[Rfam]
RNA sequence: UGAUGAAAGAAGAGGCACCCGCUUCUCACCUGAUUGACGCACAUAUGCUGUUGGUAGGUUGACUACAGAUGAACUUUAGCAAAUGGAAAUUUUGUUAAAGCGUAGUGUGGGUGCAAAAUGUACCGACGCUUUUUUUGAUUU
Numbered sequence: 001u002g003a004u005g006a007a008a009g010a011a012g013a014g015g016c017a018c019c020c021g022c023u024u025c026u027c028a029c030c031u032g033a034u035u036g037a038c039g040c041a042c043a044u045a046u047g048c049u050g051u052u053g054g055u056a057g058g059u060u061g062a063c064u065a066c067a068g069a070u071g072a073a074c075u076u077u078a079g080c081a082a083a084u085g086g087a088a089a090u091u092u093u094g095u096u097a098a099a100g101c102g103u104a105g106u107g108u109g110g111g112u113g114c115a116a117a118a119u120g121u122a123c124c125g126a127c128g129c130u131u132u133u134u135u136u137g138a139u140u141u
Base pairs, nucleotide, nucleotide: 011026012025013024014023015022016021028059029058030057036052037051038050039048040047106128107127108126110124111123112122113121114120115119
RNA: Ribosomal protein L20 leader